Nucleotides: 093
Base pairs, nucleotide, nucleotide: 001093002092003091004090005089006088007087008085011026012025013024014023015022016021029043030042031041032040047067048066050064051063070084071083072082073081
Number, partner (000 for none) and nucleotide at each position: 001093g002092g003091g004090g005089g006088u007087a008085g009000a010000u011026a012025a013024g014023u015022g016021c017000u018000g019000g020000u021016g022015u023014g024013c025012u026011u027000g028000c029043u030042g031041g032040u033000c034000u035000u036000c037000a038000a039000c040032a041031c042030c043029a044000u045000g046000u047067u048066g049000c050064c051063g052000u053000g054000c055000u056000a057000a058000u059000a060000c061000c062000a063051c064050g065000a066048c067047g068000g069000g070084u071083g072082g073081g074000u075000u076000c077000g078000a079000u080000u081073c082072c083071c084070a085008c086000a087007u088006a089005c090004u091003c092002c093001c
Rfam assigns this 93-nucleotide sequence from Clostridium sp. HMP27 to the family "Selenocysteine transfer RNA". The match comes from Rfam's covariance-model search (60 bits). The literature on the family includes a 2000 paper in FEBS Lett by Mizutani and Goto, "Eukaryotic selenocysteine tRNA has the 9/4 secondary structure".